[Rfam]
RNA sequence: CUCUUAUUACGAGUGGCGUAGGGACUAGGCCCUGUGAUGCCCGGCAACCUUUCAAGUUAUGCUUGAAAAAGGUGCCAAUUCCUACAGAUGCAUGCAUCUGGCAGAUAAGAG
Numbered sequence: 001c002u003c004u005u006a007u008u009a010c011g012a013g014u015g016g017c018g019u020a021g022g023g024a025c026u027a028g029g030c031c032c033u034g035u036g037a038u039g040c041c042c043g044g045c046a047a048c049c050u051u052u053c054a055a056g057u058u059a060u061g062c063u064u065g066a067a068a069a070a071g072g073u074g075c076c077a078a079u080u081c082c083u084a085c086a087g088a089u090g091c092a093u094g095c096a097u098c099u100g101g102c103a104g105a106u107a108a109g110a111g
Stems, first nucleotide, its partner, number of pairs: 001111008013042001015041003021032003026084004043076004048072002050068006080103001085100006